Source information
Shown here is an 89-nucleotide RNA from Evansella cellulosilytica, a member of the family "c-di-GMP-I riboswitch aptamer".
RNA sequence: UUUUGAUAAAGGCAAACUAUUUCGAAAGGAUAGGACGCAAAGUCAUGGGUCUAAAGCUAACGCAUUGCAAAGACCGCCAGACUACCAAG
Numbered sequence: 001u002u003u004u005g006a007u008a009a010a011g012g013c014a015a016a017c018u019a020u021u022u023c024g025a026a027a028g029g030a031u032a033g034g035a036c037g038c039a040a041a042g043u044c045a046u047g048g049g050u051c052u053a054a055a056g057c058u059a060a061c062g063c064a065u066u067g068c069a070a071a072g073a074c075c076g077c078c079a080g081a082c083u084a085c086c087a088a089g
Stems, first nucleotide, its partner, number of pairs: 012038002017033004022029002041083004046079003049074003056068002059065001
Dot-bracket structure: ...........((...((((.((....))))))...))..((((.((((((....((.(.....).))...)))..)))))))......

Rfam links the family to the GO term cyclic-di-GMP binding. Lineage of the source: Bacteria > Bacillati > Bacillota > Evansella > Evansella cellulosilytica.